[Rfam]
RNA sequence: ACCUGGGUGCGAUCUUCGAAAGAUUUACUGCGCAAGACACGAGAGUACGUGCGGUUGCGCGGGGUAGGUCUGAAUUGAAGAACCGGCCCAGUUACAAACCUUAGGGA
Dot-bracket structure: ((.((((.....(((((((.(((((((((.................................)))))))))...))))))).....))))))...............
Numbered sequence: 001a002c003c004u005g006g007g008u009g010c011g012a013u014c015u016u017c018g019a020a021a022g023a024u025u026u027a028c029u030g031c032g033c034a035a036g037a038c039a040c041g042a043g044a045g046u047a048c049g050u051g052c053g054g055u056u057g058c059g060c061g062g063g064g065u066a067g068g069u070c071u072g073a074a075u076u077g078a079a080g081a082a083c084c085g086g087c088c089c090a091g092u093u094a095c096a097a098a099c100c101u102u103a104g105g106g107a
Stems, first nucleotide, its partner, number of pairs: 001092002004090004013081007021071009

Rfam assigns this 107-nucleotide sequence from Corynebacterium propinquum to the family "L31-Corynebacteriaceae ribosomal protein leader". Taxonomically the source falls in Corynebacterium (Bacteria, Bacillati, Actinomycetota, Corynebacteriaceae). It is one of the family's seed sequences. For this family Rfam cites "Discovery of 20 novel ribosomal leader candidates in bacteria and archaea" (Eckert and Weinberg, BMC Microbiol, 2020). The family is grouped with related families in Rfam's "Ribosomal Protein L31 Leader clan".